[Rfam]
RNA sequence: GGUGAUAAACGCGCAUGUAAUAAACGGAUCGGACCCGGGGGCGGUACCCGGCGACUCCACCAAAACACCUGUCUUUGCAGGGGGUACGGGGUCGAAACAGGAUCGACGGACGUCUAAAGAUGUUAGCUUUUACUCGGUGAGUUACCACCGUUAUCGGUACAUUUAAGCUAGUUGCAAAUGACAACAGAGCUCCAGUUGCCCUCGCUGCGUAA
Numbered sequence: 001g002g003u004g005a006u007a008a009a010c011g012c013g014c015a016u017g018u019a020a021u022a023a024a025c026g027g028a029u030c031g032g033a034c035c036c037g038g039g040g041g042c043g044g045u046a047c048c049c050g051g052c053g054a055c056u057c058c059a060c061c062a063a064a065a066c067a068c069c070u071g072u073c074u075u076u077g078c079a080g081g082g083g084g085u086a087c088g089g090g091g092u093c094g095a096a097a098c099a100g101g102a103u104c105g106a107c108g109g110a111c112g113u114c115u116a117a118a119g120a121u122g123u124u125a126g127c128u129u130u131u132a133c134u135c136g137g138u139g140a141g142u143u144a145c146c147a148c149c150g151u152u153a154u155c156g157g158u159a160c161a162u163u164u165a166a167g168c169u170a171g172u173u174g175c176a177a178a179u180g181a182c183a184a185c186a187g188a189g190c191u192c193c194a195g196u197u198g199c200c201c202u203c204g205c206u207g208c209g210u211a212a
Stems, first nucleotide, its partner, number of pairs: 001134005013123004025112002029109003035051005052094007135150004
RNA: permuted transfer-messenger RNA
Organism: Neptunicoccus cionae